[Rfam]
The record is a 383-nucleotide RNA sequence from Solibacillus silvestris, which matches "Bacterial RNase P class B" in Rfam. The family's consensus secondary structure is taken from published work. Clan: RNaseP clan.
RNA sequence: AUAUUCGAGUAAUCGCUGCGAUUUCUAUAUCGUAGAGGAAAGUCCAUGCUCACACGGUGCUGCGAUGCCCGUAGUGUUCGUGCUUACUGAAAAAAUAAGGUAAGGCAAGAGAAUUUCUCUUGACGGCGGAAGGAACUCCUAAGUCUUUUAGAUAUGGACAAAACUUCCUGAAAGUGCCACAGUGACGGAGCUUAUAGUGAAAGCUAUAAGGUGGAACGAGGUAAACCCCAUGAGUGAGAAACCCAAAUUAUGGUAGGGGCACUCUCCUGAAGGAAUUGAACGGAUGGAGGGACGGUCAGCAUGGCCGUAGAUAGAUGAUUACUACCUAGUCGUACGAGGCGCAAGCUGUUUGAGUACUUAGGAACAAAACAUGGCUUAUUGAU
Numbered sequence: 001a002u003a004u005u006c007g008a009g010u011a012a013u014c015g016c017u018g019c020g021a022u023u024u025c026u027a028u029a030u031c032g033u034a035g036a037g038g039a040a041a042g043u044c045c046a047u048g049c050u051c052a053c054a055c056g057g058u059g060c061u062g063c064g065a066u067g068c069c070c071g072u073a074g075u076g077u078u079c080g081u082g083c084u085u086a087c088u089g090a091a092a093a094a095a096u097a098a099g100g101u102a103a104g105g106c107a108a109g110a111g112a113a114u115u116u117c118u119c120u121u122g123a124c125g126g127c128g129g130a131a132g133g134a135a136c137u138c139c140u141a142a143g144u145c146u147u148u149u150a151g152a153u154a155u156g157g158a159c160a161a162a163a164c165u166u167c168c169u170g171a172a173a174g175u176g177c178c179a180c181a182g183u184g185a186c187g188g189a190g191c192u193u194a195u196a197g198u199g200a201a202a203g204c205u206a207u208a209a210g211g212u213g214g215a216a217c218g219a220g221g222u223a224a225a226c227c228c229c230a231u232g233a234g235u236g237a238g239a240a241a242c243c244c245a246a247a248u249u250a251u252g253g254u255a256g257g258g259g260c261a262c263u264c265u266c267c268u269g270a271a272g273g274a275a276u277u278g279a280a281c282g283g284a285u286g287g288a289g290g291g292a293c294g295g296u297c298a299g300c301a302u303g304g305c306c307g308u309a310g311a312u313a314g315a316u317g318a319u320u321a322c323u324a325c326c327u328a329g330u331c332g333u334a335c336g337a338g339g340c341g342c343a344a345g346c347u348g349u350u351u352g353a354g355u356a357c358u359u360a361g362g363a364a365c366a367a368a369a370c371a372u373g374g375c376u377u378a379u380u381g382a383u
Base pairs, nucleotide, nucleotide: 005382006381007379008323009322010321011320012319013318014317016035017034018033019032020031021030040377041376042375044374045373046372047371048370049238050237051236052235053234054072055071056070057069059068060067078233079232080231081230082229083104084103085102086101087100088099105124106122107121108120109119110118111117125228126227128168129167130166131165137158138157139156143153144152145151174226175225176222177221178220191210192209193208194207195206196205197204198203242258243257244256262291263290264289265288266287267286292308293307294306295305296304297303325362326361327360328359329358332357333356334355335354